[Rfam]
RNA sequence: AGUUCAGUUCUAAGGGUCAUAUCAGAAAUGUUCACAUCCUGACCUUUGUCAUAUUCUUAACAAAUUUGUAAAAUCUGCA
Numbered sequence: 001a002g003u004u005c006a007g008u009u010c011u012a013a014g015g016g017u018c019a020u021a022u023c024a025g026a027a028a029u030g031u032u033c034a035c036a037u038c039c040u041g042a043c044c045u046u047u048g049u050c051a052u053a054u055u056c057u058u059a060a061c062a063a064a065u066u067u068g069u070a071a072a073a074u075c076u077g078c079a
Stems, first nucleotide, its partner, number of pairs: 013046006023077004028040001030038001050068002053065003
Dot-bracket structure: ............((((((....[[[[.(.(.......).)))))))...((.(((.......))).)).....]]]]..
Mammalian CPEB3 ribozyme: a 79-nucleotide RNA from Geotrypetes seraphini. Its family is annotated with RNA nuclease activity in the Gene Ontology. The family's consensus secondary structure is taken from published work. It scores 46 bits against the family's covariance model.